This 187-nucleotide RNA sequence from Pseudoduganella armeniaca belongs to the Rfam family "Manganese Mn2+ riboswitch aptamer (yybP-ykoY)".
Pairs were carried over by alignment from the consensus structure.
From the family's description: This RNA was originally discovered in E. coli during a large scale screen and was named SraF. The family was later found to exist upstream of related families of protein genes in many bacteria, including the the yybP and ykoK genes in B. subtilis. The specific functions of these proteins are unknown, but this structured RNA element may be involved in their genetic regulation as a riboswitch.
[Rfam]
RNA sequence: CUAUCAUGUGCGCGUUCUUGGGGAGUAGCCUCCUUCCGCCCGCGCGCGAGAAGAACCUGCGUCAACAUGAUCGGCCCUCUUCCGGCCGUGGUGCAGGUGGCCGAAAGGCUUGGCGAGACCAAUGAUCCACGGGCGGCCGUUUGCGGGCCGGGGCUGCCCAUGGGUCCUUGGUUAACGUCCGGCCCUU
Number, nucleotide and partner (000 for none) at each position: 001c000002u000003a000004u000005c000006a000007u000008g000009u000010g000011c000012g000013c000014g000015u000016u000017c000018u000019u000020g000021g000022g000023g000024a000025g000026u000027a000028g000029c000030c000031u000032c000033c053034u052035u051036c000037c000038g000039c000040c000041c000042g000043c000044g000045c000046g000047c000048g000049a000050g000051a035052a034053g033054a000055a098056c097057c096058u095059g094060c093061g092062u091063c090064a089065a000066c000067a000068u000069g000070a000071u000072c088073g087074g086075c085076c084077c000078u000079c000080u000081u000082c000083c000084g076085g075086c074087c073088g072089u064090g063091g062092u061093g060094c059095a058096g057097g056098u055099g000100g000101c000102c000103g000104a187105a186106a000107g000108g000109c000110u000111u000112g000113g000114c000115g000116a000117g000118a000119c000120c000121a000122a000123u000124g000125a000126u000127c000128c000129a000130c000131g000132g000133g000134c000135g000136g000137c000138c000139g000140u000141u000142u000143g000144c000145g000146g000147g000148c000149c000150g000151g000152g000153g000154c000155u000156g000157c000158c000159c000160a000161u000162g000163g000164g000165u000166c000167c000168u000169u000170g000171g000172u000173u000174a000175a000176c000177g000178u000179c000180c000181g000182g000183c000184c000185c000186u105187u104